[Rfam]
Background: Shown here is a 57-nucleotide RNA from Lactuca saligna, a member of the family "Plastid-psbA-3 3UTR RNA".
RNA sequence: AAUUGAGCAAUAACGCCAUCUUGAUAAAACAAGAGAGAAGUUAUUGCUCAUUUUUUU
Numbered sequence: 001a002a003u004u005g006a007g008c009a010a011u012a013a014c015g016c017c018a019u020c021u022u023g024a025u026a027a028a029a030c031a032a033g034a035g036a037g038a039a040g041u042u043a044u045u046g047c048u049c050a051u052u053u054u055u056u057u
Stems, first nucleotide, its partner, number of pairs: 001053002004050011019034005
It scores 56 bits against the family's covariance model. Taxonomically the source falls in Lactuca (Eukaryota, Viridiplantae, Cichorioideae, Lactucinae). The family's RNA type in Rfam is cis-regulatory element. Plastid psbA-3 is a non-coding RNA (ncRNA) present in plastids. It was identified in inverted repeat sequences in the 3 prime untranslate region (3UTR) of photosystem II quinone-binding protein (psbA).